[Rfam]
RNA: Glycine riboswitch aptamer
RNA sequence: AUGAACUUUGCGGGAGAGACUACUUUUAGGUAGCGCCGAAGGAGCAAUUUUUGUCAAAAUGCCACUGACAAAAUAAAACUCUCAGGUAAAAAGGACCGUGAAGGGACC
Numbered sequence: 001a002u003g004a005a006c007u008u009u010g011c012g013g014g015a016g017a018g019a020c021u022a023c024u025u026u027u028a029g030g031u032a033g034c035g036c037c038g039a040a041g042g043a044g045c046a047a048u049u050u051u052u053g054u055c056a057a058a059a060u061g062c063c064a065c066u067g068a069c070a071a072a073a074u075a076a077a078a079c080u081c082u083c084a085g086g087u088a089a090a091a092a093g094g095a096c097c098g099u100g101a102a103g104g105g106a107c108c
Stems, first nucleotide, its partner, number of pairs: 006103008020033004035087003038083002042081003049073008